Bacterial RNase P class A: a 407-nucleotide RNA from Hoyosella rhizosphaerae.
Rfam's curators write: Ribonuclease P (RNase P) is a ubiquitous endoribonuclease, found in archaea, bacteria and eukarya as well as chloroplasts and mitochondria.
The base pairs follow the family's consensus structure, which is taken from published work.
The match comes from Rfam's covariance-model search (275 bits).
RNA sequence: CGAGUCAGUCGGGCGGCCGCGUCGCAGGGAACCACCGCACAGCGAUAGGCCCUGCGCCGAGGAAAGUCCGGACUCCGCAGAGCAGGACGGUUGUUAACGGCAACCCGGGGCGACCCGCGGGACAGUGCCACAGAAAACAAACCGCCCACCACGGUGGGUAAGGGUGAAACGGUGCGGUAAGAGCGCACCAGCACCCUGGGUGACCAGGGUGGCUAGGUAAACCCCGUCCGGAGCAAGGCAGAAGGCCUCACCCUGUGGUGGGGCUGCGCGAAUGUUUGAGGGCUGCUCGCCCGAGUUCGCGGGUGAGCCGCAUGAGGCACCCGGCGACGGUGUGUCCAGACGGAUGGUCGCCACUCCAGCGUUUCGACGCUGGGGGACAGAAUCCGGCUUAGAGACUGGCUCGUCCC
Numbered sequence: 001c002g003a004g005u006c007a008g009u010c011g012g013g014c015g016g017c018c019g020c021g022u023c024g025c026a027g028g029g030a031a032c033c034a035c036c037g038c039a040c041a042g043c044g045a046u047a048g049g050c051c052c053u054g055c056g057c058c059g060a061g062g063a064a065a066g067u068c069c070g071g072a073c074u075c076c077g078c079a080g081a082g083c084a085g086g087a088c089g090g091u092u093g094u095u096a097a098c099g100g101c102a103a104c105c106c107g108g109g110g111c112g113a114c115c116c117g118c119g120g121g122a123c124a125g126u127g128c129c130a131c132a133g134a135a136a137a138c139a140a141a142c143c144g145c146c147c148a149c150c151a152c153g154g155u156g157g158g159u160a161a162g163g164g165u166g167a168a169a170c171g172g173u174g175c176g177g178u179a180a181g182a183g184c185g186c187a188c189c190a191g192c193a194c195c196c197u198g199g200g201u202g203a204c205c206a207g208g209g210u211g212g213c214u215a216g217g218u219a220a221a222c223c224c225c226g227u228c229c230g231g232a233g234c235a236a237g238g239c240a241g242a243a244g245g246c247c248u249c250a251c252c253c254u255g256u257g258g259u260g261g262g263g264c265u266g267c268g269c270g271a272a273u274g275u276u277u278g279a280g281g282g283c284u285g286c287u288c289g290c291c292c293g294a295g296u297u298c299g300c301g302g303g304u305g306a307g308c309c310g311c312a313u314g315a316g317g318c319a320c321c322c323g324g325c326g327a328c329g330g331u332g333u334g335u336c337c338a339g340a341c342g343g344a345u346g347g348u349c350g351c352c353a354c355u356c357c358a359g360c361g362u363u364u365c366g367a368c369g370c371u372g373g374g375g376g377a378c379a380g381a382a383u384c385c386g387g388c389u390u391a392g393a394g395a396c397u398g399g400c401u402c403g404u405c406c407c
Stems, first nucleotide, its partner, number of pairs: 001403010012352007020059002023056006064390003068387005073233004080288004085229005090104005105119001106117004120224002125222002127218003142163002144159006171189006191213001192211008237309003268300006280292004316336005321330003